[Rfam]
RNA sequence: UUGGUUCCGGUUCACGCCGCGGGGCAGAUCCAGCCCCACCUUCACAGAUGGCGACCCGGUGCC
Numbered sequence: 001u002u003g004g005u006u007c008c009g010g011u012u013c014a015c016g017c018c019g020c021g022g023g024g025c026a027g028a029u030c031c032a033g034c035c036c037c038a039c040c041u042u043c044a045c046a047g048a049u050g051g052c053g054a055c056c057c058g059g060u061g062c063c
Stems, first nucleotide, its partner, number of pairs: 003063003007059004015053005020047001022045001
Dot-bracket structure: ..(((.((((....((((((.(......................).).)))))..)))).)))
The family of this 63-nucleotide RNA sequence from Propionicimonas paludicola is "L31-Actinobacteria ribosomal protein leader".
A search with the family's covariance model found it, with a score of 38 bits.
The family's RNA type in Rfam is cis-regulatory leader.
Its Rfam clan is "Ribosomal Protein L31 Leader clan".
The organism belongs to Propionicimonas, within Bacteria.